[Rfam]
A member of the RNA family "sraA" from Paramixta manurensis, 106 nucleotides long. On this family, see Hershberg et al., Nucleic Acids Res 2003: "A survey of small RNA-encoding genes in Escherichia coli". It is annotated as a small RNA. The source organism's lineage runs through Bacteria, Pseudomonadati, Pseudomonadota, Gammaproteobacteria and Paramixta. The base pairs follow the family's consensus structure, which was predicted with RNAalifold.

RNA sequence: AGGUAACUGAGUAUAUGGGGAUGAACACCAGACAUUCAACGUCAAGCGCACGAGAAAAACAGCAGAAAAGUAAAAGGGGAAAAAAAUUUCCCCUUUUUAGAUAACU
Numbered sequence: 001a002g003g004u005a006a007c008u009g010a011g012u013a014u015a016u017g018g019g020g021a022u023g024a025a026c027a028c029c030a031g032a033c034a035u036u037c038a039a040c041g042u043c044a045a046g047c048g049c050a051c052g053a054g055a056a057a058a059a060c061a062g063c064a065g066a067a068a069a070g071u072a073a074a075a076g077g078g079g080a081a082a083a084a085a086a087u088u089u090c091c092c093c094u095u096u097u098u099a100g101a102u103a104a105c106u
Base pairs, nucleotide, nucleotide: 008038010036011035012034016032019029020028073097074096075095076094077093078092079091081089082088083087